[Rfam]
RNA sequence: UUAUUUACUCAAGCGCCAGAACUAAUCUGUUCGUUAGAUUAGUUGACGAGGUGGAGGUUUAUCGAACGUUCGGCGGAUACCUCCCGACUGUUGACACACAGUCGAAGUUUCUUUCUCAAAUCACCAGAGGCGACUCGGUGGACAAAAGAAAGAGAAUGUGCACAU
Numbered sequence: 001u002u003a004u005u006u007a008c009u010c011a012a013g014c015g016c017c018a019g020a021a022c023u024a025a026u027c028u029g030u031u032c033g034u035u036a037g038a039u040u041a042g043u044u045g046a047c048g049a050g051g052u053g054g055a056g057g058u059u060u061a062u063c064g065a066a067c068g069u070u071c072g073g074c075g076g077a078u079a080c081c082u083c084c085c086g087a088c089u090g091u092u093g094a095c096a097c098a099c100a101g102u103c104g105a106a107g108u109u110u111c112u113u114u115c116u117c118a119a120a121u122c123a124c125c126a127g128a129g130g131c132g133a134c135u136c137g138g139u140g141g142a143c144a145a146a147a148g149a150a151a152g153a154g155a156a157u158g159u160g161c162a163c164a165u
Base pairs, nucleotide, nucleotide: 020044021043022042023041024040025039026038027037029035053084054083055082056081057080062073063072064071065070085104086103087102088101089100090099108155109154110153111152112151113150114149122140123139124138125137127136128135129134
RNA: glmS glucosamine-6-phosphate activated ribozyme aptamer
Organism: Bacillus sp. FJAT-49711